[Rfam]
RNA sequence: AAAAAAAACAAACCUGAAUUUUCGUGUCUAACGUUUGACUGUCCGUCUUAUAUAAAUUUUUUUUAUAAUUAGUAUUUUUAUUGUUGUUAAAUGAUAAAAAAUGAUUAAUAUGUUAUGCGUGACUUGUCUUUUUAAUUUUUUUAUAAUUUAUUUUAAAUAAGACAGACGGUCAAACGUUAGACACGGAAACUCAGGGUUUGUCUUUUU
Numbered sequence: 001a002a003a004a005a006a007a008a009c010a011a012a013c014c015u016g017a018a019u020u021u022u023c024g025u026g027u028c029u030a031a032c033g034u035u036u037g038a039c040u041g042u043c044c045g046u047c048u049u050a051u052a053u054a055a056a057u058u059u060u061u062u063u064u065a066u067a068a069u070u071a072g073u074a075u076u077u078u079u080a081u082u083g084u085u086g087u088u089a090a091a092u093g094a095u096a097a098a099a100a101a102u103g104a105u106u107a108a109u110a111u112g113u114u115a116u117g118c119g120u121g122a123c124u125u126g127u128c129u130u131u132u133u134a135a136u137u138u139u140u141u142u143a144u145a146a147u148u149u150a151u152u153u154u155a156a157a158u159a160a161g162a163c164a165g166a167c168g169g170u171c172a173a174a175c176g177u178u179a180g181a182c183a184c185g186g187a188a189a190c191u192c193a194g195g196g197u198u199u200g201u202c203u204u205u206u207u
Stems, first nucleotide, its partner, number of pairs: 027181006034174010045163007
Dot-bracket structure: ..........................((((((.((((((((((.(((((((.........................................................................................................))))))).)))))))))).))))))..........................